[Rfam]
RNA: MIR6145 microRNA precursor family
RNA sequence: GCAAGAGGCAUUGCUACACAUAGCAUUAGCCCCUAAAAAGGUUCCGGCCAGUGCUUGUGUAACAAUCUCUCCGGCU
Numbered sequence: 001g002c003a004a005g006a007g008g009c010a011u012u013g014c015u016a017c018a019c020a021u022a023g024c025a026u027u028a029g030c031c032c033c034u035a036a037a038a039a040g041g042u043u044c045c046g047g048c049c050a051g052u053g054c055u056u057g058u059g060u061a062a063c064a065a066u067c068u069c070u071c072c073g074g075c076u
Stems, first nucleotide, its partner, number of pairs: 001075002005071004010066004015061005022055006029048003